[Rfam]
RNA sequence: AGCCUAAACCAACGAGAAAUUGUUGGCAUGGUGAAAAGUCCGUUCAAGACAAAAACCCCAUCAUAUGGGAAUGUCUUGAACGGCCACGUCGGGAAACCGGCGCGGAGGACGCAAGUCCUC
Numbered sequence: 001a002g003c004c005u006a007a008a009c010c011a012a013c014g015a016g017a018a019a020u021u022g023u024u025g026g027c028a029u030g031g032u033g034a035a036a037a038g039u040c041c042g043u044u045c046a047a048g049a050c051a052a053a054a055a056c057c058c059c060a061u062c063a064u065a066u067g068g069g070a071a072u073g074u075c076u077u078g079a080a081c082g083g084c085c086a087c088g089u090c091g092g093g094a095a096a097c098c099g100g101c102g103c104g105g106a107g108g109a110c111g112c113a114a115g116u117c118c119u120c
Stems, first nucleotide, its partner, number of pairs: 002032003009026007040083011057069004085104001087102006105120006
A member of the RNA family "LOOT RNA", 120 nucleotides long. The base pairs follow the family's consensus structure, which is taken from published work. The family's RNA type in Rfam is small RNA. It is one of the family's seed sequences.